A member of the RNA family "Vertebrate telomerase RNA" from Chelonoidis abingdonii, 404 nucleotides long.
The literature on the family includes a 2000 paper in Cell by Chen et al., "Secondary structure of vertebrate telomerase RNA".
Lineage of the source: Eukaryota > Euteleostomi > Sarcopterygii > Cryptodira > Chelonoidis nigra species complex.
RNA sequence: GCUGCGGCGGCGGGGGGGCUCAGUCUUUCUAACCCUAAGCGGAACGUGGCCCCUCCCCGCCGCAGCCGUCCGCUGUUUUACUCGCUGACUUUCAGCGGACGGGGGGAGCGGGUGGAGACGCCAACCAAAAAACGUCAGCGAGGGGCCCUCCCCUCCCACGCCGACCUUGUCCGGUGUGGGGCCCGCCAGAGAAGUCCCCGCCGCCCCGCCCUGGUGAGGCCGCGGUCAGCCGGUUCGCGCCACUGCUGCCGCGAAGAGUUCGUCUCUGUCAGCCUCGGGGGCGGCCGGGGUGGAAAGGCGGGUCCCGGGCGGGUCGGCCGGGAGAGCAAACAUGAGCGGCGGUCCCUGCGCAACCGCCCUCCCCGAGCUGUGGGGCCCGCGGUCGGGGCUGCUCUCAGACACGC
Numbered sequence: 001g002c003u004g005c006g007g008c009g010g011c012g013g014g015g016g017g018g019c020u021c022a023g024u025c026u027u028u029c030u031a032a033c034c035c036u037a038a039g040c041g042g043a044a045c046g047u048g049g050c051c052c053c054u055c056c057c058c059g060c061c062g063c064a065g066c067c068g069u070c071c072g073c074u075g076u077u078u079u080a081c082u083c084g085c086u087g088a089c090u091u092u093c094a095g096c097g098g099a100c101g102g103g104g105g106g107a108g109c110g111g112g113u114g115g116a117g118a119c120g121c122c123a124a125c126c127a128a129a130a131a132a133c134g135u136c137a138g139c140g141a142g143g144g145g146c147c148c149u150c151c152c153c154u155c156c157c158a159c160g161c162c163g164a165c166c167u168u169g170u171c172c173g174g175u176g177u178g179g180g181g182c183c184c185g186c187c188a189g190a191g192a193a194g195u196c197c198c199c200g201c202c203g204c205c206c207c208g209c210c211c212u213g214g215u216g217a218g219g220c221c222g223c224g225g226u227c228a229g230c231c232g233g234u235u236c237g238c239g240c241c242a243c244u245g246c247u248g249c250c251g252c253g254a255a256g257a258g259u260u261c262g263u264c265u266c267u268g269u270c271a272g273c274c275u276c277g278g279g280g281g282c283g284g285c286c287g288g289g290g291u292g293g294a295a296a297g298g299c300g301g302g303u304c305c306c307g308g309g310c311g312g313g314u315c316g317g318c319c320g321g322g323a324g325a326g327c328a329a330a331c332a333u334g335a336g337c338g339g340c341g342g343u344c345c346c347u348g349c350g351c352a353a354c355c356g357c358c359c360u361c362c363c364c365g366a367g368c369u370g371u372g373g374g375g376c377c378c379g380c381g382g383u384c385g386g387g388g389c390u391g392c393u394c395u396c397a398g399a400c401a402c403g404c
Stems, first nucleotide, its partner, number of pairs: 002163001004161003009156002012153004017147005054108001056106003067101009084139006090132003166321002169318003179305009196290004200285002204280005221253005227248004232241003255267004334396003339392007354382004360375004